[Rfam]
RNA sequence: GGUAAUCUGAGUGCAGUGGUAUUCACAACUAGUUGAUCAUAACCAGUUACAGAUUCCUUUGUUCCUUCUCCACUCUUACUGCUUCACUUGACUAGCCUUUU
Numbered sequence: 001g002g003u004a005a006u007c008u009g010a011g012u013g014c015a016g017u018g019g020u021a022u023u024c025a026c027a028a029c030u031a032g033u034u035g036a037u038c039a040u041a042a043c044c045a046g047u048u049a050c051a052g053a054u055u056c057c058u059u060u061g062u063u064c065c066u067u068c069u070c071c072a073c074u075c076u077u078a079c080u081g082c083u084u085c086a087c088u089u090g091a092c093u094a095g096c097c098u099u100u101u
Base pairs, nucleotide, nucleotide: 001096003094004093006091007090009089010088013085015080016079017078018077019076027063028062029061031059032058